[Rfam]
Nucleotides: 229
Stems, first nucleotide, its partner, number of pairs: 005086007013078005020041004026035003045052002055067004089227002092224001096217006105193011116181001118150004125142006154178003158175002161172002195205003
Number, partner (000 for none) and nucleotide at each position: 001000g002000a003000g004000u005086u006085u007084c008083u009082g010081u011080u012000u013078g014077c015076a016075g017074c018000g019000a020041g021040c022039u023038u024000a025000a026035g027034c028033c029000g030000g031000u032000a033028g034027g035026c036000g037000u038023a039022g040021g041020c042000g043000u044000a045052g046051c047000g048000a049000a050000a051046g052045c053000g054000a055067g056066u057065c058064u059000g060000a061000a062000u063000a064058g065057g066056g067055c068000g069000a070000c071000u072000g073000a074017g075016u076015u077014g078013c079000u080011g081010g082009c083008a084007g085006a086005a087000g088000a089227c090226c091000c092224g093000a094000a095000a096217c097216c098215g099214a100213g101212u102000g103000a104000u105193c106192u107191a108190g109189c110188c111187a112186u113185g114184g115183c116181c117000a118150g119149g120148c121147u122000g123000a124000a125142g126141g127140u128139g129138c130137g131000g132000u133000a134000a135000c136000a137130c138129g139128c140127a141126c142125u143000g144000g145000a146000g147121g148120g149119c150118c151000g152000a153000a154178c155177c156176c157000a158175c159174g160000c161172c162171u163000g164000u165000u166000g167000a168000a169000a170000a171162a172161g173000u174159c175158g176156g177155g178154g179000a180000u181116g182000a183115g184114c185113u186112g187111u188110g189109g190108c191107u192106a193105g194000g195205g196204g197203u198000g199000a200000a201000a202000g203197g204196c205195c206000a207000a208000u209000c210000a211000a212101a213100c214099u215098c216097g217096g218000a219000g220000a221000u222000a223000g224092c225000u226090g227089g228000u229000u